[Rfam]
RNA sequence: CUCUAUCACGAGUCUCUCACACAAGAAGGACUCUUCGGAGGACGAUCUCUUAUUUUUAUACGCAUGUGGGAAAUUCGGAGUAAGCCUCAACACCGCCGACUCUCUCUGCCUUUUUGGCAGAGAACCAGUUGGUCUGCCGGUAACGGCCUGGCGUCAAUGUACGUCUGCAAAUGAUAUCAGAAAUCUCAGAGCGCGUGCUUCUGUUGCGCUGUCUCUAUGGGAAGUCUUUGCGAGGCUUGUUUUGGGAAAAACUGAAGUGCGAUACGCGGCGUCUCGUCCCUCGCUUUGCGCGGGCGGGAUGACUCAAUUCCGAUCACUCUGGGGAGGG
Numbered sequence: 001c002u003c004u005a006u007c008a009c010g011a012g013u014c015u016c017u018c019a020c021a022c023a024a025g026a027a028g029g030a031c032u033c034u035u036c037g038g039a040g041g042a043c044g045a046u047c048u049c050u051u052a053u054u055u056u057u058a059u060a061c062g063c064a065u066g067u068g069g070g071a072a073a074u075u076c077g078g079a080g081u082a083a084g085c086c087u088c089a090a091c092a093c094c095g096c097c098g099a100c101u102c103u104c105u106c107u108g109c110c111u112u113u114u115u116g117g118c119a120g121a122g123a124a125c126c127a128g129u130u131g132g133u134c135u136g137c138c139g140g141u142a143a144c145g146g147c148c149u150g151g152c153g154u155c156a157a158u159g160u161a162c163g164u165c166u167g168c169a170a171a172u173g174a175u176a177u178c179a180g181a182a183a184u185c186u187c188a189g190a191g192c193g194c195g196u197g198c199u200u201c202u203g204u205u206g207c208g209c210u211g212u213c214u215c216u217a218u219g220g221g222a223a224g225u226c227u228u229u230g231c232g233a234g235g236c237u238u239g240u241u242u243u244g245g246g247a248a249a250a251a252c253u254g255a256a257g258u259g260c261g262a263u264a265c266g267c268g269g270c271g272u273c274u275c276g277u278c279c280c281u282c283g284c285u286u287u288g289c290g291c292g293g294g295c296g297g298g299a300u301g302a303c304u305c306a307a308u309u310c311c312g313a314u315c316a317c318u319c320u321g322g323g324g325a326g327g328g
Base pairs, nucleotide, nucleotide: 001268003266008067009066010065012063026051027050028049029047030046031044076312077311078310079309080308085235086234087233088232136147137146138145139144150165151164152163153162154161167231168230169229170228171227173225188216189215190214271300272299273298274297275296276295277294278293279292
The family of this 328-nucleotide RNA from Fusarium torreyae is "Nuclear RNase P". Ribonuclease P (RNase P) is a ubiquitous endoribonuclease, found in archaea, bacteria and eukarya as well as chloroplasts and mitochondria. By type it is a ribozyme. The organism belongs to Fusarium torreyae species complex, within Eukaryota. A search with the family's covariance model found it, with a score of 44 bits.